Rfam assigns this 47-nucleotide RNA to the family "L31-Actinobacteria ribosomal protein leader". The family is grouped with related families in Rfam's "Ribosomal Protein L31 Leader clan". The sequence is in the family's curated seed alignment.
RNA sequence: UCGGCCCCGGUUCACGCCCCUGCACCCCGCGGGAGCGACCCGGCGCC
Numbered sequence: 001u002c003g004g005c006c007c008c009g010g011u012u013c014a015c016g017c018c019c020c021u022g023c024a025c026c027c028c029g030c031g032g033g034a035g036c037g038a039c040c041c042g043g044c045g046c047c
Base pairs, nucleotide, nucleotide: 003047004046005045007043008042009041010040015037016036017035019033020032021031022030023029